[Rfam]
RNA: mir-998 microRNA precursor family
RNA sequence: CGAAACUCCACGGGAGUUGAACUCCCGUGGAGUUACAGGCCAAAUUUCCCAGAGAAUCGCUCUCGAGCGAUUCUCUGGGAAAUUUGGCAUGUAACUCCACGGGAGUUCAACUCCCGUGGAGUUUAU
Numbered sequence: 001c002g003a004a005a006c007u008c009c010a011c012g013g014g015a016g017u018u019g020a021a022c023u024c025c026c027g028u029g030g031a032g033u034u035a036c037a038g039g040c041c042a043a044a045u046u047u048c049c050c051a052g053a054g055a056a057u058c059g060c061u062c063u064c065g066a067g068c069g070a071u072u073c074u075c076u077g078g079g080a081a082a083u084u085u086g087g088c089a090u091g092u093a094a095c096u097c098c099a100c101g102g103g104a105g106u107u108c109a110a111c112u113c114c115c116g117u118g119g120a121g122u123u124u125a126u
Stems, first nucleotide, its partner, number of pairs: 003124005009118001011116005017110003023104008033094005